[Rfam]
RNA: Alphaproteobacterial ar15
RNA sequence: AUCGUUCGGCGGUUUCCUCCCAUUCCGCCGGACGGUGUUCCCCUCUGAAGGUUUUGACCUUCUUUUGGCCGGGCCGCAUUCGAGCCCGGCCUUU
Number, nucleotide and partner (000 for none) at each position: 001a036002u035003c034004g033005u032006u000007c030008g029009g028010c027011g026012g025013u000014u000015u000016c000017c000018u000019c000020c000021c000022a000023u000024u000025c012026c011027g010028c009029c008030g007031g000032a005033c004034g003035g002036u001037g000038u000039u000040c000041c000042c000043c000044u000045c000046u000047g062048a061049a060050g059051g058052u057053u000054u000055u000056g000057a052058c051059c050060u049061u048062c047063u000064u000065u000066u000067g000068g000069c089070c088071g087072g086073g085074c084075c082076g081077c000078a000079u000080u000081c076082g075083a000084g074085c073086c072087c071088g070089g069090c000091c000092u000093u000094u000